Shown here is a 123-nucleotide RNA from Gossypium mustelinum, a member of the family "MIR7504 microRNA precursor family".
A search with the family's covariance model found it, with a score of 113 bits.
Rfam links the family to the GO terms miRNA-mediated post-transcriptional gene silencing and RISC complex.
RNA sequence: AAUAGGAGAAUAACAAAUAAGAUUUUUCCUCUUGAUUAUUAGCUUUUUUCUCCUGAAAAAAUUCAAAUCAAACUAAAAAUGCUAAAAAUCAGGAGAAAAAAUCUAAUUUGUUAUUCUCUUAUU
Numbered sequence: 001a002a003u004a005g006g007a008g009a010a011u012a013a014c015a016a017a018u019a020a021g022a023u024u025u026u027u028c029c030u031c032u033u034g035a036u037u038a039u040u041a042g043c044u045u046u047u048u049u050c051u052c053c054u055g056a057a058a059a060a061a062u063u064c065a066a067a068u069c070a071a072a073c074u075a076a077a078a079a080u081g082c083u084a085a086a087a088a089u090c091a092g093g094a095g096a097a098a099a100a101a102u103c104u105a106a107u108u109u110g111u112u113a114u115u116c117u118c119u120u121a122u123u
Base pairs, nucleotide, nucleotide: 001123002122003121004120005119006118007117008116009115010114011113012112013111014110015109016108017107018106020104021103022102023101024100025099026098027097029095030094031093032092033091034090035089036088037087039085041083042082045079046078047077048076